[Rfam]
RNA sequence: AUGUACCACUCGUACACUGCGGUUCCUAGGCUCCUUCCGCGCCCACCUGACGGCUGUUCGCUAUGUUUUGUCAGCC
Numbered sequence: 001a002u003g004u005a006c007c008a009c010u011c012g013u014a015c016a017c018u019g020c021g022g023u024u025c026c027u028a029g030g031c032u033c034c035u036u037c038c039g040c041g042c043c044c045a046c047c048u049g050a051c052g053g054c055u056g057u058u059c060g061c062u063a064u065g066u067u068u069u070g071u072c073a074g075c076c
Stems, first nucleotide, its partner, number of pairs: 002016005021034002025030001047074007
This 76-nucleotide RNA from Xanthomonas campestris belongs to the Rfam family "Xanthomonas sRNA sX9". On this family, see Schmidtke et al., Nucleic Acids Res 2011: "Genome-wide transcriptome analysis of the plant pathogen Xanthomonas identifies sRNAs with putative virulence functions". The family has 16 seed sequences and 309 matches in Rfam 15.1.